[Rfam]
RNA: Lysine riboswitch aptamer
RNA sequence: CCAAGAAAUAGAGGUCGCGGGUGGUGACGAAAGCAGGCGAGGGCUAGAUCCCUUUGAACCUGUCGUAAGCAUCCCCGCCGAAAUCAUCCAACUCGUCUAGGAGUUGUUUGGUUGGGGCAAGCGAAAAUAUCGCUUGAACUGUCGCAGCAAUGCGGAGCGCUAUGAUUCUG
Numbered sequence: 001c002c003a004a005g006a007a008a009u010a011g012a013g014g015u016c017g018c019g020g021g022u023g024g025u026g027a028c029g030a031a032a033g034c035a036g037g038c039g040a041g042g043g044c045u046a047g048a049u050c051c052c053u054u055u056g057a058a059c060c061u062g063u064c065g066u067a068a069g070c071a072u073c074c075c076c077g078c079c080g081a082a083a084u085c086a087u088c089c090a091a092c093u094c095g096u097c098u099a100g101g102a103g104u105u106g107u108u109u110g111g112u113u114g115g116g117g118c119a120a121g122c123g124a125a126a127a128u129a130u131c132g133c134u135u136g137a138a139c140u141g142u143c144g145c146a147g148c149a150a151u152g153c154g155g156a157g158c159g160c161u162a163u164g165a166u167u168c169u170g
Stems, first nucleotide, its partner, number of pairs: 008163004017078005023073004033063005082113005089106005114140002118136007142155005